[Rfam]
RNA: SL2 RNA
Organism: Caenorhabditis elegans
RNA sequence: GGUUUUAACCCAGUUACUCAAGGUACGCUGGAGUUCUGACCUUUCGAAAGAAAGUGUCAAACGACUUUAAUUUUUGGAACCGCUCUGCUGGGGUCAUCCGGUAGAGCAAA
Numbered sequence: 001g002g003u004u005u006u007a008a009c010c011c012a013g014u015u016a017c018u019c020a021a022g023g024u025a026c027g028c029u030g031g032a033g034u035u036c037u038g039a040c041c042u043u044u045c046g047a048a049a050g051a052a053a054g055u056g057u058c059a060a061a062c063g064a065c066u067u068u069a070a071u072u073u074u075u076g077g078a079a080c081c082g083c084u085c086u087g088c089u090g091g092g093g094u095c096a097u098c099c100g101g102u103a104g105a106g107c108a109a110a
Stems, first nucleotide, its partner, number of pairs: 007035002009031002013028002015025003037059004041054005084108001086106001088104003092099002